[Rfam]
RNA sequence: GGUUUGUAGGCAGUGUAGUUAGCUGAUUGUAUCCAUUUCCCCAGCAAUCACUAGCUUCGCUGUCAUCAAAAC
Numbered sequence: 001g002g003u004u005u006g007u008a009g010g011c012a013g014u015g016u017a018g019u020u021a022g023c024u025g026a027u028u029g030u031a032u033c034c035a036u037u038u039c040c041c042c043a044g045c046a047a048u049c050a051c052u053a054g055c056u057u058c059g060c061u062g063u064c065a066u067c068a069a070a071a072c
Stems, first nucleotide, its partner, number of pairs: 003070004009064002012061004017056006024050007

Overview: This 72-nucleotide RNA from Salvator merianae belongs to the Rfam family "mir-34 microRNA precursor family". Human mir-34a was discovered computationally and later experimentally verified. The mature sequence is excised from the 5' arm of the hairpin. NCBI's taxonomy places the organism under Eukaryota, Opisthokonta, Deuterostomia, Sauropsida, Salvator. The family has 113 seed sequences and 2,256 matches in Rfam 15.1. Its family is annotated with RISC complex and miRNA-mediated post-transcriptional gene silencing in the Gene Ontology.